[Rfam]
RNA sequence: UGUGGUGCAAUGAUUGGAAAGUAAUUCCUCGUACUGACUGCCGUCAUUGGCAUGACAGACCUCAUAUACACCCAUAGAAUAUGAGCGCCA
Numbered sequence: 001u002g003u004g005g006u007g008c009a010a011u012g013a014u015u016g017g018a019a020a021g022u023a024a025u026u027c028c029u030c031g032u033a034c035u036g037a038c039u040g041c042c043g044u045c046a047u048u049g050g051c052a053u054g055a056c057a058g059a060c061c062u063c064a065u066a067u068a069c070a071c072c073c074a075u076a077g078a079a080u081a082u083g084a085g086c087g088c089c090a
Stems, first nucleotide, its partner, number of pairs: 003090002006087002
Overview: Shown here is a 90-nucleotide RNA from Spirodela intermedia, a member of the family "Small nucleolar RNA snoR8a". By type it is a C/D-box small nucleolar RNA. The match comes from Rfam's covariance-model search (73 bits). NCBI's taxonomy places the organism under Eukaryota, Viridiplantae, Streptophytina, Tracheophyta, Spirodela. Gene Ontology terms of the family: RNA processing and nucleolus.